sRNA-Xcc1: an 83-nucleotide sequence. Pairs were carried over by alignment from the consensus structure, which was predicted with RNAalifold. The family's RNA type in Rfam is small RNA. The sequence is in the family's curated seed alignment.
RNA sequence: GGCCGGGAGUGGGCUAAUAGAAUACCCUUCGGGGGAAUAUGCCCGCCGUCUCGCAACGGUUUCUAGCUCCCGGCCUUUUCCAU
Numbered sequence: 001g002g003c004c005g006g007g008a009g010u011g012g013g014c015u016a017a018u019a020g021a022a023u024a025c026c027c028u029u030c031g032g033g034g035g036a037a038u039a040u041g042c043c044c045g046c047c048g049u050c051u052c053g054c055a056a057c058g059g060u061u062u063c064u065a066g067c068u069c070c071c072g073g074c075c076u077u078u079u080c081c082a083u
Stems, first nucleotide, its partner, number of pairs: 001075009012043003015039002025034003045060005